[Rfam]
RNA sequence: ACCCUCCGGUUCCCUUUCCCAUCGGAUCAGAACACUGGUCUUGGUGGUCGUACAAGGAGGAAAAGUGAUACUGAAGCUGGCCUCACCGUGUUGUAGUCUGAUAUAGCACUGGGCCAGCGUCAGACAGGG
Number, nucleotide and partner (000 for none) at each position: 001a000002c000003c060004c059005u058006c057007c056008g000009g000010u000011u000012c000013c000014c000015u000016u000017u000018c000019c047020c046021a045022u044023c043024g000025g040026a039027u038028c037029a000030g000031a000032a000033c000034a000035c000036u000037g028038g027039u026040c025041u000042u000043g023044g022045u021046g020047g019048u000049c000050g000051u000052a000053c000054a000055a000056g007057g006058a005059g004060g003061a000062a000063a000064a000065g000066u000067g000068a000069u000070a000071c000072u000073g000074a000075a000076g000077c117078u116079g115080g114081c113082c112083u111084c000085a000086c000087c000088g000089u000090g000091u000092u108093g107094u106095a000096g000097u000098c000099u000100g000101a000102u000103a000104u000105a000106g094107c093108a092109c000110u000111g083112g082113g081114c080115c079116a078117g077118c000119g000120u000121c000122a000123g000124a000125c000126a000127g000128g000129g000
RNA: Small nucleolar RNA SNORA61
Organism: Oryctolagus cuniculus